Source information:
Shown here is a 69-nucleotide RNA from Austrofundulus limnaeus, a member of the family "miR-430 microRNA precursor family". Rfam 15.1 lists 24,817 matches to the family in 105 species.
RNA sequence: UGUCCUACCUUAACUUGAGCAUUGACUUGAAUUUUAAACCAGUAAGUGCUACAUGUUGGGGCAGAUAUA
Numbered sequence: 001u002g003u004c005c006u007a008c009c010u011u012a013a014c015u016u017g018a019g020c021a022u023u024g025a026c027u028u029g030a031a032u033u034u035u036a037a038a039c040c041a042g043u044a045a046g047u048g049c050u051a052c053a054u055g056u057u058g059g060g061g062c063a064g065a066u067a068u069a
Base pairs, nucleotide, nucleotide: 005064006063008061009060010059011058013056014055016053017052018050019049020048021047022046023045025043026042027041